Background:
Small Cajal body-specific RNA 7: a 335-nucleotide sequence from Sarcophilus harrisii. A search with the family's covariance model found it, with a score of 249 bits.
[Rfam]
RNA sequence: UGGAAAUGAUGACACAGAGAUAACUGGGUGCAUUUGUUUGAAAGGUGUGUGAUUUGAGCAUUUUAAAACUUACUAUAAAAUUAAGUAAACAUUAAAAUGGGGCGGGAGGGGGCUUGUAUGUGUGUGUGCGUGCAUGGGGGUAAUAAUGUAAAGGCUGAGGAAAGGGAGCCCUGACUGACAAUGCAGAUAUCGGAGUGCAUCUGAGGCUGUUGUAAAAAAUACAGGAGUGUUUGUUACAGCUUUGCCGAUGAUUAUAGCUCAGCAACAGCUCACCUACCUGCCUGGCACCCAAGUCUCUAACAGGUUCAUAAAUGUGGACCUGUGAUCUGAUCCAU
Numbered sequence: 001u002g003g004a005a006a007u008g009a010u011g012a013c014a015c016a017g018a019g020a021u022a023a024c025u026g027g028g029u030g031c032a033u034u035u036g037u038u039u040g041a042a043a044g045g046u047g048u049g050u051g052a053u054u055u056g057a058g059c060a061u062u063u064u065a066a067a068a069c070u071u072a073c074u075a076u077a078a079a080a081u082u083a084a085g086u087a088a089a090c091a092u093u094a095a096a097a098u099g100g101g102g103c104g105g106g107a108g109g110g111g112g113c114u115u116g117u118a119u120g121u122g123u124g125u126g127u128g129c130g131u132g133c134a135u136g137g138g139g140g141u142a143a144u145a146a147u148g149u150a151a152a153g154g155c156u157g158a159g160g161a162a163a164g165g166g167a168g169c170c171c172u173g174a175c176u177g178a179c180a181a182u183g184c185a186g187a188u189a190u191c192g193g194a195g196u197g198c199a200u201c202u203g204a205g206g207c208u209g210u211u212g213u214a215a216a217a218a219a220u221a222c223a224g225g226a227g228u229g230u231u232u233g234u235u236a237c238a239g240c241u242u243u244g245c246c247g248a249u250g251a252u253u254a255u256a257g258c259u260c261a262g263c264a265a266c267a268g269c270u271c272a273c274c275u276a277c278c279u280g281c282c283u284g285g286c287a288c289c290c291a292a293g294u295c296u297c298u299a300a301c302a303g304g305u306u307c308a309u310a311a312a313u314g315u316g317g318a319c320c321u322g323u324g325a326u327c328u329g330a331u332c333c334a335u
Base pairs, nucleotide, nucleotide: 001334002333003332004331209240210239211238212237213236214235215234217232218231219230220229221228222227
Rfam links the family to the GO terms RNA processing and nucleolus. Pairs were carried over by alignment from the consensus structure. The literature on the family includes a 2002 paper in EMBO J by Darzacq et al., "Cajal body-specific small nuclear RNAs: a novel class of 2'-O-methylation and pseudouridylation guide RNAs".